[Rfam]
RNA sequence: AAGUUGCUGUGAUGACUUACCACGGACGGUAUCUGAGCGAGGCAUCUGCUCUCGCAUGAUUAUACCUGAUCUGAGACAAAAAAUGUCUGAGCAAAUG
Dot-bracket structure: .(.((((.............................((((((.......))))))...................................)))).).
Numbered sequence: 001a002a003g004u005u006g007c008u009g010u011g012a013u014g015a016c017u018u019a020c021c022a023c024g025g026a027c028g029g030u031a032u033c034u035g036a037g038c039g040a041g042g043c044a045u046c047u048g049c050u051c052u053c054g055c056a057u058g059a060u061u062a063u064a065c066c067u068g069a070u071c072u073g074a075g076a077c078a079a080a081a082a083a084u085g086u087c088u089g090a091g092c093a094a095a096u097g
Stems, first nucleotide, its partner, number of pairs: 002096001004094004037055006
Background:
Rfam assigns this 97-nucleotide RNA from Digitaria exilis to the family "Small nucleolar RNA Z118/Z121/Z120". By type it is a C/D-box small nucleolar RNA. For this family Rfam cites "The high diversity of snoRNAs in plants: identification and comparative study of 120 snoRNA genes from Oryza sativa" (Chen et al., Nucleic Acids Res, 2003). The family's consensus secondary structure was predicted with PFOLD. NCBI's taxonomy places the organism under Eukaryota, Petrosaviidae, Poales, Panicoideae, Digitaria.